A member of the RNA family "MIR807 microRNA precursor family" from Oryza sativa, 178 nucleotides long. Pairs were carried over by alignment from the consensus structure, which was predicted with WAR. A reference for the family is Luo et al. (2006), "Rice embryogenic calli express a unique set of microRNAs, suggesting regulatory roles of microRNAs in plant post-embryogenic development", FEBS Lett. Gene Ontology terms of the family: RISC complex and miRNA-mediated post-transcriptional gene silencing.
RNA sequence: AAUCACACUAUCAAUGAAUGGAUUCACCCGCGAGAUGAUGUGGCUCUUUCACAUAAGACGAGGACAUGGUAUCCUAUUACUAGCCAUCUCACGAAAUUAAUAGGAUAUACUACGUCAUCAUCCUAAAUGGAGCAACCACGUCAUCUCACGGGUGAAUCCAUUCAUCGAUAGUGUGUUU
Numbered sequence: 001a002a003u004c005a006c007a008c009u010a011u012c013a014a015u016g017a018a019u020g021g022a023u024u025c026a027c028c029c030g031c032g033a034g035a036u037g038a039u040g041u042g043g044c045u046c047u048u049u050c051a052c053a054u055a056a057g058a059c060g061a062g063g064a065c066a067u068g069g070u071a072u073c074c075u076a077u078u079a080c081u082a083g084c085c086a087u088c089u090c091a092c093g094a095a096a097u098u099a100a101u102a103g104g105a106u107a108u109a110c111u112a113c114g115u116c117a118u119c120a121u122c123c124u125a126a127a128u129g130g131a132g133c134a135a136c137c138a139c140g141u142c143a144u145c146u147c148a149c150g151g152g153u154g155a156a157u158c159c160a161u162u163c164a165u166c167g168a169u170a171g172u173g174u175g176u177u178u
Stems, first nucleotide, its partner, number of pairs: 001178002004175004009170004014165002017162003021158008030149001032147002035144005041138003045134001047132002051128001054125002057122002063116003069110001070107010086097002